[Rfam]
RNA: DUF805b RNA
RNA sequence: AAUGGGGAAGCUGAAAACCAUAAAAAGAGUAAGCA
Dot-bracket structure: .((((....[[[.....))))..........]]].